[Rfam]
The family of this 73-nucleotide RNA sequence from Muraenolepis orangiensis is "Small nucleolar RNA SNORD99". Lineage of the source: Eukaryota > Euteleostomi > Actinopterygii > Gadiformes > Muraenolepis. On this family, see Galardi et al., Mol Cell Biol 2002: "Purified box C/D snoRNPs are able to reproduce site-specific 2'-O-methylation of target RNA in vitro".
RNA sequence: GCUGAUCUAUGAUGAGUCAAUUUAGCAUGGAGACUGUUGGAUGACUCUAGCGGAUAUGGGACUGAGGUCAUUU
Numbered sequence: 001g002c003u004g005a006u007c008u009a010u011g012a013u014g015a016g017u018c019a020a021u022u023u024a025g026c027a028u029g030g031a032g033a034c035u036g037u038u039g040g041a042u043g044a045c046u047c048u049a050g051c052g053g054a055u056a057u058g059g060g061a062c063u064g065a066g067g068u069c070a071u072u073u
Stems, first nucleotide, its partner, number of pairs: 001072001003070003